[Rfam]
The family of this 119-nucleotide RNA sequence from Coptis chinensis is "U5 spliceosomal RNA".
Nucleotides: 119
Base pairs, nucleotide, nucleotide: 003077004076005075006074008067010065011064012063013062014061015060016059017058018057027053028052029051030050031049032048034046095119098118100116102114103113
Number, partner (000 for none) and nucleotide at each position: 001000u002000a003077c004076c005075a006074u007000g008067u009000c010065g011064u012063g013062a014061a015060c016059a017058c018057a019000g020000a021000g022000c023000g024000a025000a026000c027053u028052a029051u030050u031049c032048u033000a034046u035000u036000g037000a038000c039000u040000u041000u042000u043000a044000c045000u046034a047000a048032a049031g050030a051029a052028u053027a054000u055000c056000g057018u058017g059016u060015g061014u062013u063012u064011a065010c066000c067008a068000c069000u070000u071000a072000u073000u074006g075005u076004g077003g078000g079000a080000u081000g082000c083000a084000c085000c086000u087000g088000u089000u090000u091000u092000c093000g094000g095119u096000a097000g098118g099000a100116u101000a102114c103113c104000a105000c106000c107000c108000u109000g110000c111000a112000a113103g114102g115000a116100a117000a118098u119095a

About this RNA:
By type it is a spliceosomal small nuclear RNA.